[Rfam]
RNA sequence: GUGAAAAUAAGAAAUUAUCGAAUAAACUCGUUUAGACGAGAACUGCUAGAGGCAGUAA
Numbered sequence: 001g002u003g004a005a006a007a008u009a010a011g012a013a014a015u016u017a018u019c020g021a022a023u024a025a026a027c028u029c030g031u032u033u034a035g036a037c038g039a040g041a042a043c044u045g046c047u048a049g050a051g052g053c054a055g056u057a058a
Stems, first nucleotide, its partner, number of pairs: 027040005042056006
About this RNA
Shown here is a 58-nucleotide RNA, a member of the family "RAGATH-30 RNA". The family's consensus secondary structure is taken from published work. Rfam's curators put it in the seed alignment. By type it is a small RNA.